[Rfam]
RNA sequence: CAGCAUGCUAUCCUAAGGACCUGGGCUUUGUAGCCUCUGGUUCUCCAAGUGCAUGCCAGAGAAACGGGCAGUCUUUGACUGUCCUGGCCUUUGUGCUUGAGGCAGUCACUCUACUGUCCUACAAAU
Numbered sequence: 001c002a003g004c005a006u007g008c009u010a011u012c013c014u015a016a017g018g019a020c021c022u023g024g025g026c027u028u029u030g031u032a033g034c035c036u037c038u039g040g041u042u043c044u045c046c047a048a049g050u051g052c053a054u055g056c057c058a059g060a061g062a063a064a065c066g067g068g069c070a071g072u073c074u075u076u077g078a079c080u081g082u083c084c085u086g087g088c089c090u091u092u093g094u095g096c097u098u099g100a101g102g103c104a105g106u107c108a109c110u111c112u113a114c115u116g117u118c119c120u121a122c123a124a125a126u
Stems, first nucleotide, its partner, number of pairs: 013039001018035001020033001024029001066119006081106002084099001086097002
This 126-nucleotide RNA sequence from Esox lucius belongs to the Rfam family "Small nucleolar RNA SNORA44". The family has 27 seed sequences and 1,056 matches in Rfam 15.1. Rfam's curators write: ACA44 is a member of the H/ACA class of snoRNA that guide the sites of modification of uridines to pseudouridines. The organism belongs to Esox, within Eukaryota. On this family, see Huttenhofer et al., EMBO J 2001: "RNomics: an experimental approach that identifies 201 candidates for novel, small, non-messenger RNAs in mouse".